[Rfam]
RNA sequence: AAGCUCUUGUAGAGCUUUUUUUAAAUACCUUCUUCGCUUGAAAUUCUUGUUUAUUUAAUAGAAAUAAGCUAUAAUAAAGCAUAGCACUUAAUUUUAGAAAGAAGGUGUAAGU
Numbered sequence: 001a002a003g004c005u006c007u008u009g010u011a012g013a014g015c016u017u018u019u020u021u022u023a024a025a026u027a028c029c030u031u032c033u034u035c036g037c038u039u040g041a042a043a044u045u046c047u048u049g050u051u052u053a054u055u056u057a058a059u060a061g062a063a064a065u066a067a068g069c070u071a072u073a074a075u076a077a078a079g080c081a082u083a084g085c086a087c088u089u090a091a092u093u094u095u096a097g098a099a100a101g102a103a104g105g106u107g108u109a110a111g112u
Stems, first nucleotide, its partner, number of pairs: 003080003007076001013070005019064004034049001084108006

A member of the RNA family "Streptococcus sRNA SSRC41" from Streptococcus pyogenes, 112 nucleotides long. The source organism's lineage runs through Bacteria, Bacillota, Streptococcaceae, Streptococcus and Streptococcus pyogenes serotype M1.